[Rfam]
RNA sequence: CAGAGUCAGAUACGAGGGUGUCAAGGCAGCCUCGUCAGAACUCAUUAUUUAAAUCUGGUCAUGCCGCUGGGUAGAACACGGCCCACCGCCAAGCGCACCGCAGAUACCACCAGCCCAUGCUGGCAGGUCUGGCGCAGUUGCCACACUGAUCGGCCAAGCCUUCGGUGUAGUGACGUGGAUAGCAUGAAUUACCG
Numbered sequence: 001c002a003g004a005g006u007c008a009g010a011u012a013c014g015a016g017g018g019u020g021u022c023a024a025g026g027c028a029g030c031c032u033c034g035u036c037a038g039a040a041c042u043c044a045u046u047a048u049u050u051a052a053a054u055c056u057g058g059u060c061a062u063g064c065c066g067c068u069g070g071g072u073a074g075a076a077c078a079c080g081g082c083c084c085a086c087c088g089c090c091a092a093g094c095g096c097a098c099c100g101c102a103g104a105u106a107c108c109a110c111c112a113g114c115c116c117a118u119g120c121u122g123g124c125a126g127g128u129c130u131g132g133c134g135c136a137g138u139u140g141c142c143a144c145a146c147u148g149a150u151c152g153g154c155c156a157a158g159c160c161u162u163c164g165g166u167g168u169a170g171u172g173a174c175g176u177g178g179a180u181a182g183c184a185u186g187a188a189u190u191a192c193c194g
Stems, first nucleotide, its partner, number of pairs: 004042003012035006019028003059187006065088002068085005093135004101131004107127002110123005138173002141170001143168007152160003
This 194-nucleotide RNA sequence from Undibacterium sp. KW1 belongs to the Rfam family "RT-15 RNA". It scores 154 bits against the family's covariance model.